[Rfam]
RNA sequence: AAGCUCAGCUCUGAAGUGCAGAGGCUGUUUGCACUUCCUCUGCACUUGAAGCUGAGACUGA
Numbered sequence: 001a002a003g004c005u006c007a008g009c010u011c012u013g014a015a016g017u018g019c020a021g022a023g024g025c026u027g028u029u030u031g032c033a034c035u036u037c038c039u040c041u042g043c044a045c046u047u048g049a050a051g052c053u054g055a056g057a058c059u060g061a
Base pairs, nucleotide, nucleotide: 004056005055006054007053008052009051010050012049014047015046016045017044018043019042020041021040022039023038024037027034028033
mir-7143 microRNA precursor family: a 61-nucleotide RNA from Sus scrofa. Taxonomically the source falls in Sus (Eukaryota, Gnathostomata, Sarcopterygii, Dipnotetrapodomorpha). Its family is annotated with miRNA-mediated post-transcriptional gene silencing and RISC complex in the Gene Ontology.